[Rfam]
RNA sequence: ACAGUGCUCCGGUCUGUCGCCGGCACACUAUCGUGCGGGAGGAAAGUCCGGGCAGCGCAGGACGCCUCACUUCUGAAAGUAGAAGCUGUCGGUGACGACAGGAGACGGCAGAAGAAAAUAACCGCCUGUGCUUGUGUACAGGUAAGGGUGAGAAGGUGGUGUAAGAGACCACCGGGUGUCAAGUGAUUGGCAUGCCGUGCCAUCUGGGGGCUGCAAGUUCGCGUAAACCACCGUCCGAGGGUUGUCCGCCCGAUAUGAUAUUCAUAACGGUGGAGGGUGGAACGCUUAAGCCGUGGAGUGAUCCGCGGAUUAGAUAAAUGACAGACGCCUUAUAUCAUGAUGAAUGUUAUGAGGAACAGAACCCGGCUUACAGGGGCACUGUAUUU
Dot-bracket structure: ((((((((((((((((((.((.((((......)))).))....[[[.[[[[[((((...[[...((((((((((......)))))(.((((....)))).)((...((((...........((((((((((....))))))))..)).......((((((.......)))))).((((((((....))))))).)..)))).)))))))))))...((((.......(((((.....................((((...]]))))..)))))......)))).......(((((((....)))))))...........)))))))...................................]]]]]]]].).))))))))))....
Numbered sequence: 001a002c003a004g005u006g007c008u009c010c011g012g013u014c015u016g017u018c019g020c021c022g023g024c025a026c027a028c029u030a031u032c033g034u035g036c037g038g039g040a041g042g043a044a045a046g047u048c049c050g051g052g053c054a055g056c057g058c059a060g061g062a063c064g065c066c067u068c069a070c071u072u073c074u075g076a077a078a079g080u081a082g083a084a085g086c087u088g089u090c091g092g093u094g095a096c097g098a099c100a101g102g103a104g105a106c107g108g109c110a111g112a113a114g115a116a117a118a119u120a121a122c123c124g125c126c127u128g129u130g131c132u133u134g135u136g137u138a139c140a141g142g143u144a145a146g147g148g149u150g151a152g153a154a155g156g157u158g159g160u161g162u163a164a165g166a167g168a169c170c171a172c173c174g175g176g177u178g179u180c181a182a183g184u185g186a187u188u189g190g191c192a193u194g195c196c197g198u199g200c201c202a203u204c205u206g207g208g209g210g211c212u213g214c215a216a217g218u219u220c221g222c223g224u225a226a227a228c229c230a231c232c233g234u235c236c237g238a239g240g241g242u243u244g245u246c247c248g249c250c251c252g253a254u255a256u257g258a259u260a261u262u263c264a265u266a267a268c269g270g271u272g273g274a275g276g277g278u279g280g281a282a283c284g285c286u287u288a289a290g291c292c293g294u295g296g297a298g299u300g301a302u303c304c305g306c307g308g309a310u311u312a313g314a315u316a317a318a319u320g321a322c323a324g325a326c327g328c329c330u331u332a333u334a335u336c337a338u339g340a341u342g343a344a345u346g347u348u349a350u351g352a353g354g355a356a357c358a359g360a361a362c363c364c365g366g367c368u369u370a371c372a373g374g375g376g377c378a379c380u381g382u383a384u385u386u
Stems, first nucleotide, its partner, number of pairs: 001382010011371001012326007020039002023036004044369003048366005053213004060262002065209005070085005086101001088099004102204002107201004122147002124143008155173006175195001176193007217283004228273005254266004291308007